[Rfam]
RNA sequence: UGUCUCCUCCAACUCCUAAGAAGAAUUGGAUUUAACCCGCCACCAUGGCGGGUUUUUUUUC
Numbered sequence: 001u002g003u004c005u006c007c008u009c010c011a012a013c014u015c016c017u018a019a020g021a022a023g024a025a026u027u028g029g030a031u032u033u034a035a036c037c038c039g040c041c042a043c044c045a046u047g048g049c050g051g052g053u054u055u056u057u058u059u060u061c
Base pairs, nucleotide, nucleotide: 008030009029010028011027012026013023034054035053036052037051038050039049040048041047
RNA: Betaproteobacteria toxic small RNA
Organism: Rugamonas brunnea